[Rfam]
RNA sequence: GAUCUUCAGAGCUGGGGCUGUAUCAUAACCAGGCUGUGAGUGUGAUGAAGCAUGGGUAUGAUACGACCUCAGUUUGGAGGUC
Numbered sequence: 001g002a003u004c005u006u007c008a009g010a011g012c013u014g015g016g017g018c019u020g021u022a023u024c025a026u027a028a029c030c031a032g033g034c035u036g037u038g039a040g041u042g043u044g045a046u047g048a049a050g051c052a053u054g055g056g057u058a059u060g061a062u063a064c065g066a067c068c069u070c071a072g073u074u075u076g077g078a079g080g081u082c
Stems, first nucleotide, its partner, number of pairs: 001082007009075009019065009029055003033051002035047003
mir-729 microRNA precursor family: an 82-nucleotide RNA from Sparus aurata. Taxonomically the source falls in Sparus (Eukaryota, Bilateria, Craniata, Ctenosquamata). Its family is annotated with RISC complex and miRNA-mediated post-transcriptional gene silencing in the Gene Ontology. Rfam 15.1 lists 43 matches to the family in 36 species.